[Rfam]
RNA sequence: CAGCAGUUCCGGGCCCCUCUGACGCGAGUGCCGGAUACCCGUGAUGUCGGAACUGCAAC
Numbered sequence: 001c002a003g004c005a006g007u008u009c010c011g012g013g014c015c016c017c018u019c020u021g022a023c024g025c026g027a028g029u030g031c032c033g034g035a036u037a038c039c040c041g042u043g044a045u046g047u048c049g050g051a052a053c054u055g056c057a058a059c
Base pairs, nucleotide, nucleotide: 006053007052008051009050010049011048012047022042023041024040026038027036
The record is a 59-nucleotide RNA sequence from Gillisella ampelina, which matches "terC RNA" in Rfam. It is one of the family's seed sequences. The source organism's lineage runs through Bacteria, Pseudomonadati, Alphaproteobacteria, Hyphomicrobiales and Gillisella ampelina. By type it is a cis-regulatory element.